[Rfam]
RNA sequence: UUUUGGAGAUGAUGGUUCUUAUCAAAGGCUGUUUCCAAGGGGAGCCAAGAGCUUUCCCUGUGCUGCAAGACAACUAAUUGUCAUUCCGAUCCAAAG
Numbered sequence: 001u002u003u004u005g006g007a008g009a010u011g012a013u014g015g016u017u018c019u020u021a022u023c024a025a026a027g028g029c030u031g032u033u034u035c036c037a038a039g040g041g042g043a044g045c046c047a048a049g050a051g052c053u054u055u056c057c058c059u060g061u062g063c064u065g066c067a068a069g070a071c072a073a074c075u076a077a078u079u080g081u082c083a084u085u086c087c088g089a090u091c092c093a094a095a096g
Stems, first nucleotide, its partner, number of pairs: 003094005041055005065081004
Dot-bracket structure: ..(((((.................................(((((.....))))).........((((.........))))........)))))..
The family of this 96-nucleotide RNA sequence from Zea mays is "Small nucleolar RNA Z119". On this family, see Chen et al., Nucleic Acids Res 2003: "The high diversity of snoRNAs in plants: identification and comparative study of 120 snoRNA genes from Oryza sativa". By type it is a C/D-box small nucleolar RNA. Its family is annotated with nucleolus and RNA processing in the Gene Ontology.